The family of this 75-nucleotide sequence from Sphingomonas carotinifaciens is "Makes More Granules Regulator RNA (mmgR)". The source organism's lineage runs through Bacteria, Pseudomonadati, Pseudomonadota, Sphingomonadaceae and Sphingomonas. Rfam links the family to the GO terms protein binding, response to nitrogen compound and DNA-templated transcription, termination. The pairing is the family consensus, mapped onto this sequence. By type it is a small RNA.

[Rfam]
RNA sequence: GGAGCGGGCCUUUCAGGCAUCCUCUCCUAAAAACUUUCACGGCUGGUCUGCGGACCGGCCUUUUUUUUGGCCCGG
Numbered sequence: 001g002g003a004g005c006g007g008g009c010c011u012u013u014c015a016g017g018c019a020u021c022c023u024c025u026c027c028u029a030a031a032a033a034c035u036u037u038c039a040c041g042g043c044u045g046g047u048c049u050g051c052g053g054a055c056c057g058g059c060c061u062u063u064u065u066u067u068u069g070g071c072c073c074g075g
Base pairs, nucleotide, nucleotide: 008018009017010016011015041060042059043058044057045056046055047054048053